This 89-nucleotide RNA sequence from Lymphocryptovirus macacinegamma10 belongs to the Rfam family "mir-BART9 microRNA precursor family". The family has 2 seed sequences and 7 matches in Rfam 15.1. The base pairs follow the family's consensus structure, which was predicted with RNAalifold.
[Rfam]
RNA sequence: CGGUUGUCGCGGGUGCUGGACCCGGGAUUUGAAGCAGUAAUUUAGAUUCUGUUACAAUGCCUAUGGGUCUAGUAGUUGCAGUGCCGCUC
Numbered sequence: 001c002g003g004u005u006g007u008c009g010c011g012g013g014u015g016c017u018g019g020a021c022c023c024g025g026g027a028u029u030u031g032a033a034g035c036a037g038u039a040a041u042u043u044a045g046a047u048u049c050u051g052u053u054a055c056a057a058u059g060c061c062u063a064u065g066g067g068u069c070u071a072g073u074a075g076u077u078g079c080a081g082u083g084c085c086g087c088u089c
Stems, first nucleotide, its partner, number of pairs: 002088003006082002009079002014074010024062003027058003034052003